[Rfam]
RNA sequence: GACGGAAAAAGCCAAACCAGUUGUGAGGCUGGGACGGAAAGCCUAAGGGUCUUUAAGUCAGUAUUAAGGGAUGUAGAUAUACAAGGAAGCACUAAAAGAUAGCCGGGUCACCCUU
Numbered sequence: 001g002a003c004g005g006a007a008a009a010a011g012c013c014a015a016a017c018c019a020g021u022u023g024u025g026a027g028g029c030u031g032g033g034a035c036g037g038a039a040a041g042c043c044u045a046a047g048g049g050u051c052u053u054u055a056a057g058u059c060a061g062u063a064u065u066a067a068g069g070g071a072u073g074u075a076g077a078u079a080u081a082c083a084a085g086g087a088a089g090c091a092c093u094a095a096a097a098g099a100u101a102g103c104c105g106g107g108u109c110a111c112c113c114u115u
Stems, first nucleotide, its partner, number of pairs: 012037002017032006041108003047104002049100006
RNA: c-di-GMP-I riboswitch aptamer